[Rfam]
RNA sequence: UGAAAAUGAAUAAUCGUACCAUAGACAGUAGGUGCCGUAAGGCUUAAUCUCCUACCGAGGUGUUCGAAAUAGAAGAUGCGGUGGCGCAUGGGAACAUGCGUGAUCAAGCGCCGCUGCAUUCGUGAUGCCUCUGUAGAUUGCUGCAGAGGCUUUUCUUAUGCUCGU
Numbered sequence: 001u002g003a004a005a006a007u008g009a010a011u012a013a014u015c016g017u018a019c020c021a022u023a024g025a026c027a028g029u030a031g032g033u034g035c036c037g038u039a040a041g042g043c044u045u046a047a048u049c050u051c052c053u054a055c056c057g058a059g060g061u062g063u064u065c066g067a068a069a070u071a072g073a074a075g076a077u078g079c080g081g082u083g084g085c086g087c088a089u090g091g092g093a094a095c096a097u098g099c100g101u102g103a104u105c106a107a108g109c110g111c112c113g114c115u116g117c118a119u120u121c122g123u124g125a126u127g128c129c130u131c132u133g134u135a136g137a138u139u140g141c142u143g144c145a146g147a148g149g150c151u152u153u154u155c156u157u158a159u160g161c162u163c164g165u
Base pairs, nucleotide, nucleotide: 028055029054030053031052032051034043035042036041127150128149129148130147131146132145133144134143135142136141

Overview:
The family of this 165-nucleotide RNA from Paenibacillus dendritiformis is "Ribosomal protein L10 leader". Its family is annotated with regulation of gene expression in the Gene Ontology. Rfam classes the family as a cis-regulatory leader. The literature on the family includes a 1994 paper in Prog Nucleic Acid Res Mol Biol by Zengel and Lindahl, "Diverse mechanisms for regulating ribosomal protein synthesis in Escherichia coli". A search with the family's covariance model found it, with a score of 76 bits. The source organism's lineage runs through Bacteria, Bacillota, Bacilli, Paenibacillaceae and Paenibacillus dendritiformis.